Shown here is a 99-nucleotide RNA from Paenibacillus montanisoli, a member of the family "Purine riboswitch aptamer". Rfam 15.1 lists 4,097 matches to the family in 1,411 species. Rfam links the family to the GO term purine nucleobase biosynthetic process. Lineage of the source: Bacteria > Bacillota > Bacilli > Paenibacillaceae > Paenibacillus.
RNA sequence: AACAAUAACUGCAUACCUUUUCGUAUAAUCUCAAGAAUCGGCUUGGGAGUCUCUACCGGUCACCGUAAUGACCUGUCUACGAGAAGCAGGACUUGCAAU
Numbered sequence: 001a002a003c004a005a006u007a008a009c010u011g012c013a014u015a016c017c018u019u020u021u022c023g024u025a026u027a028a029u030c031u032c033a034a035g036a037a038u039c040g041g042c043u044u045g046g047g048a049g050u051c052u053c054u055a056c057c058g059g060u061c062a063c064c065g066u067a068a069u070g071a072c073c074u075g076u077c078u079a080c081g082a083g084a085a086g087c088a089g090g091a092c093u094u095g096c097a098a099u
Base pairs, nucleotide, nucleotide: 018085019084020083021082022081023080024079025078029048030047031046032045033044034043035042057075058073059072060071061070062069